Record summary: DUF805b RNA: a 33-nucleotide sequence. Clan: DUF805 clan.
[Rfam]
RNA sequence: GCCGCGUAAGCCGAAAAGCGAACAGAGUAGGCA
Numbered sequence: 001g002c003c004g005c006g007u008a009a010g011c012c013g014a015a016a017a018g019c020g021a022a023c024a025g026a027g028u029a030g031g032c033a
Stems, first nucleotide, its partner, number of pairs: 003020003010032003